[Rfam]
Annotation
The record is a 200-nucleotide RNA sequence from Oryza meridionalis, which matches "MIR1435 microRNA precursor family" in Rfam. The organism belongs to Oryza, within Eukaryota. The match comes from Rfam's covariance-model search (94 bits).
RNA sequence: UGACUUUUUUCCUAGUCAAACUUUUUUAAGUUUGACCAAGUUUAUAGAAAAAUGUAGAAACAUUUUCAACAUAACACAAACAUAUUAUCAAAAUAUAUUAAAUGUUAGUUUUAAUGAAACUAAUUUGUUGUUGUAGAUGUUACUAAAUUUUUAUAUAAACUUGGUUAAACUUAAAGAAGUUCGACUAGAAAAAAAGUCAA
Numbered sequence: 001u002g003a004c005u006u007u008u009u010u011c012c013u014a015g016u017c018a019a020a021c022u023u024u025u026u027u028a029a030g031u032u033u034g035a036c037c038a039a040g041u042u043u044a045u046a047g048a049a050a051a052a053u054g055u056a057g058a059a060a061c062a063u064u065u066u067c068a069a070c071a072u073a074a075c076a077c078a079a080a081c082a083u084a085u086u087a088u089c090a091a092a093a094u095a096u097a098u099u100a101a102a103u104g105u106u107a108g109u110u111u112u113a114a115u116g117a118a119a120c121u122a123a124u125u126u127g128u129u130g131u132u133g134u135a136g137a138u139g140u141u142a143c144u145a146a147a148u149u150u151u152u153a154u155a156u157a158a159a160c161u162u163g164g165u166u167a168a169a170c171u172u173a174a175a176g177a178a179g180u181u182c183g184a185c186u187a188g189a190a191a192a193a194a195a196g197u198c199a200a
Stems, first nucleotide, its partner, number of pairs: 005195005012188006019181008031169005043155008055145003059141007067133002071128004